Notes:
This 79-nucleotide RNA sequence from Actinomortierella ambigua belongs to the Rfam family "Small nucleolar RNA R38". The literature on the family includes a 2003 paper in Nucleic Acids Res by Chen et al., "The high diversity of snoRNAs in plants: identification and comparative study of 120 snoRNA genes from Oryza sativa". Taxonomically the source falls in Actinomortierella (Eukaryota, Opisthokonta, Mortierellomycotina, Mortierellomycetes). Rfam 15.1 lists 2,295 matches to the family in 1,305 species. It scores 46 bits against the family's covariance model. About the family: snoR38 is a C/D box small nucleolar RNA conserved across yeast, human, Arabidopsis and rice. It is encoded in the intron of elongation factor-1 gamma in both pombe and cerevisiae. snoR38 guides the methylation of 2'-O-ribose sites in 28S rRNA. The family's consensus secondary structure was predicted with PFOLD.
[Rfam]
RNA sequence: UUCAAAAGGAUGAAUCAUUUUUUUAUCAGUUAUCCCUGACUUAAUCAUCUGUGUCGAGAACUUGGUAUCUGAACUUGGA
Numbered sequence: 001u002u003c004a005a006a007a008g009g010a011u012g013a014a015u016c017a018u019u020u021u022u023u024u025a026u027c028a029g030u031u032a033u034c035c036c037u038g039a040c041u042u043a044a045u046c047a048u049c050u051g052u053g054u055c056g057a058g059a060a061c062u063u064g065g066u067a068u069c070u071g072a073a074c075u076u077g078g079a
Stems, first nucleotide, its partner, number of pairs: 001079005